[Rfam]
RNA sequence: UAUGAGCGUCUUACCUGAACAUUAUUGGAGCUUCUUUUCUUCAAAUCUAAUACUGUCAGGUAAAGAUGCUCAUC
Numbered sequence: 001u002a003u004g005a006g007c008g009u010c011u012u013a014c015c016u017g018a019a020c021a022u023u024a025u026u027g028g029a030g031c032u033u034c035u036u037u038u039c040u041u042c043a044a045a046u047c048u049a050a051u052a053c054u055g056u057c058a059g060g061u062a063a064a065g066a067u068g069c070u071c072a073u074c
Base pairs, nucleotide, nucleotide: 002073003072004071005070006069007068008067009066010065011063012062013061014060015059016058017057020055021054023052024051025050026049027048028047029046
A member of the RNA family "mir-236 microRNA precursor family" from Mesorhabditis belari, 74 nucleotides long.
The source organism's lineage runs through Eukaryota, Bilateria, Ecdysozoa, Nematoda and Mesorhabditis.
Pairs were carried over by alignment from the consensus structure, which was predicted with RNAalifold.